[Rfam]
RNA sequence: GCGCAUUAGUAACUCCGAAGCCUAUUUCGCUAAGUUCGAAAGAAUACGGGAAAUAGGCCGUGACAUUCCGUCACCAGGGCGCUCAUAGAAAUGUGGUCGUCUCCCGUAUUUGGAAAGGUGUUUCGUGGCAACGCAA
Numbered sequence: 001g002c003g004c005a006u007u008a009g010u011a012a013c014u015c016c017g018a019a020g021c022c023u024a025u026u027u028c029g030c031u032a033a034g035u036u037c038g039a040a041a042g043a044a045u046a047c048g049g050g051a052a053a054u055a056g057g058c059c060g061u062g063a064c065a066u067u068c069c070g071u072c073a074c075c076a077g078g079g080c081g082c083u084c085a086u087a088g089a090a091a092u093g094u095g096g097u098c099g100u101c102u103c104c105c106g107u108a109u110u111u112g113g114a115a116a117g118g119u120g121u122u123u124c125g126u127g128g129c130a131a132c133g134c135a136a
Stems, first nucleotide, its partner, number of pairs: 006127001011122003015118002020058009030048001034045004060074005077102005083096005103113002
The record is a 136-nucleotide RNA from Enterovibrio coralii, which matches "Molybdenum/Tungsten riboswitch aptamer (Moco RNA motif)" in Rfam. The family's consensus secondary structure is taken from published work. The organism belongs to Enterovibrio, within Bacteria. A search with the family's covariance model found it, with a score of 94 bits.